[Rfam]
RNA sequence: ACCCCCUCACAAUGGGCAAAGAGACACCUUGGUGGGGGUGGUGUUCUUAUAUCAGUCAGGGGCAGAGCAGAUGGCAGUCCCUUGUUCAUCCUAGCUUGAUGCCUGGCUUGAUAGCCAAAGCUGUCUCAUGCCUAGGACUCAUAA
Dot-bracket structure: ..(((((.....(((...(((.(.((((........)))).)...)))...)))...))))).....................((((..........(.(...(((..((.(.......).))..))).).)..))))......
Numbered sequence: 001a002c003c004c005c006c007u008c009a010c011a012a013u014g015g016g017c018a019a020a021g022a023g024a025c026a027c028c029u030u031g032g033u034g035g036g037g038g039u040g041g042u043g044u045u046c047u048u049a050u051a052u053c054a055g056u057c058a059g060g061g062g063c064a065g066a067g068c069a070g071a072u073g074g075c076a077g078u079c080c081c082u083u084g085u086u087c088a089u090c091c092u093a094g095c096u097u098g099a100u101g102c103c104u105g106g107c108u109u110g111a112u113a114g115c116c117a118a119a120g121c122u123g124u125c126u127c128a129u130g131c132c133u134a135g136g137a138c139u140c141a142u143a144a
Stems, first nucleotide, its partner, number of pairs: 003062005013054003019048003023042001025040004084138004098132001100130001104128003109123002112120001
Record summary
This 144-nucleotide sequence from Mus musculus belongs to the Rfam family "Small nucleolar RNA SNORA48". Pairs were carried over by alignment from the consensus structure, which was predicted with RNAalifold. The family is grouped with related families in Rfam's "SNORA48 clan". The snoRNA ACA 48 has been identified to guide pseudouridylation of the residue U3797 in the 28S rRNA subunit. A search with the family's covariance model found it, with a score of 72 bits. NCBI's taxonomy places the organism under Eukaryota, Amniota, Boreoeutheria, Rodentia, Mus.